[Rfam]
RNA sequence: GCAGUGCCAAUCUAGUGGAAGGGGUGUACAAACGAGGCAUACAUUGUCAUUAUUUUCACCUCGGGAAGGUCUGAGAUAAGAUUGUUAAACGUUCUAGCCGGACGGCAUCAUAAUGAUGCGUACGAGAACCAGAAAUAGCUUUGCGUUUUUCAAAAUGCUGAGGACGCUUUUUUAAAGCAGAGGCGACUGGAAACGUGAAGUUGAAAUCUCGUAUAAUCCGCAAGUUUAGUCUAAUCCACAAGCCUGGUAGUCAUACCUGGAACUCAAUUCAGACUAAUCUGAUGCUGC
Numbered sequence: 001g002c003a004g005u006g007c008c009a010a011u012c013u014a015g016u017g018g019a020a021g022g023g024g025u026g027u028a029c030a031a032a033c034g035a036g037g038c039a040u041a042c043a044u045u046g047u048c049a050u051u052a053u054u055u056u057c058a059c060c061u062c063g064g065g066a067a068g069g070u071c072u073g074a075g076a077u078a079a080g081a082u083u084g085u086u087a088a089a090c091g092u093u094c095u096a097g098c099c100g101g102a103c104g105g106c107a108u109c110a111u112a113a114u115g116a117u118g119c120g121u122a123c124g125a126g127a128a129c130c131a132g133a134a135a136u137a138g139c140u141u142u143g144c145g146u147u148u149u150u151c152a153a154a155a156u157g158c159u160g161a162g163g164a165c166g167c168u169u170u171u172u173u174a175a176a177g178c179a180g181a182g183g184c185g186a187c188u189g190g191a192a193a194c195g196u197g198a199a200g201u202u203g204a205a206a207u208c209u210c211g212u213a214u215a216a217u218c219c220g221c222a223a224g225u226u227u228a229g230u231c232u233a234a235u236c237c238a239c240a241a242g243c244c245u246g247g248u249a250g251u252c253a254u255a256c257c258u259g260g261a262a263c264u265c266a267a268u269u270c271a272g273a274c275u276a277a278u279c280u281g282a283u284g285c286u287g288c
Stems, first nucleotide, its partner, number of pairs: 001288004008281002012242002015239004021062005035050001037048001071272005080218004090104005105119005120214007140200003243260002246257004
RNA: Nuclear RNase P